[Rfam]
RNA sequence: GAAACACCCCUAUGGAGCAGUACUUGCUCUAGUGGGGCUUUGAUGCUCACUGAGUCUGCCCCUUAAGUGUGUUGCU
Number, nucleotide and partner (000 for none) at each position: 001g075002a000003a073004a072005c071006a070007c069008c000009c067010c000011u065012a064013u000014g062015g061016a000017g059018c058019a057020g000021u000022a055023c054024u000025u000026g000027c000028u000029c000030u052031a051032g050033u049034g048035g047036g046037g044038c000039u000040u000041u000042g000043a000044u037045g000046c036047u035048c034049a033050c032051u031052g030053a000054g023055u022056c000057u019058g018059c017060c000061c015062c014063u000064u012065a011066a000067g009068u000069g007070u006071g005072u004073u003074g000075c001076u000
Rfam assigns this 76-nucleotide RNA sequence from Myotis brandtii to the family "mir-9229 microRNA precursor family". Rfam links the family to the GO terms RISC complex and miRNA-mediated post-transcriptional gene silencing. Taxonomically the source falls in Myotis (Eukaryota, Deuterostomia, Euteleostomi, Amniota).